This 124-nucleotide sequence from Erinaceus europaeus belongs to the Rfam family "Small nucleolar RNA SNORA68". For this family Rfam cites "The family of box ACA small nucleolar RNAs is defined by an evolutionarily conserved secondary structure and ubiquitous sequence elements essential for RNA accumulation" (Ganot et al., Genes Dev, 1997). It is annotated as an H/ACA-box small nucleolar RNA. Taxonomically the source falls in Erinaceus (Eukaryota, Eumetazoa, Dipnotetrapodomorpha, Boreoeutheria). Rfam describes the family as follows. U68 is a member of the H/ACA class of small nucleolar RNAs (snoRNAs) which act as guides in the the modification of uridines to pseudouridines. A search with the family's covariance model found it, with a score of 55 bits.

[Rfam]
RNA sequence: AACACACCUUUUAAAGAUUUAUUUAAAUAUUAAUGAGGUUCAAACACAGGUGCUAACAGCGACGGUGCCUCAUCGCCUCUGGAGGAUUUUGUGCCCUUCAAGUGAAUUUAGAGGUUCUACACAC
Numbered sequence: 001a002a003c004a005c006a007c008c009u010u011u012u013a014a015a016g017a018u019u020u021a022u023u024u025a026a027a028u029a030u031u032a033a034u035g036a037g038g039u040u041c042a043a044a045c046a047c048a049g050g051u052g053c054u055a056a057c058a059g060c061g062a063c064g065g066u067g068c069c070u071c072a073u074c075g076c077c078u079c080u081g082g083a084g085g086a087u088u089u090u091g092u093g094c095c096c097u098u099c100a101a102g103u104g105a106a107u108u109u110a111g112a113g114g115u116u117c118u119a120c121a122c123a124c
Stems, first nucleotide, its partner, number of pairs: 005052005016040002018037006065117001067115005077102002080100006087093001
Dot-bracket structure: ....(((((......((((((((........)))))).)).......)))))............(.(((((.....((.((((((.(.....).))))))))........))))).).......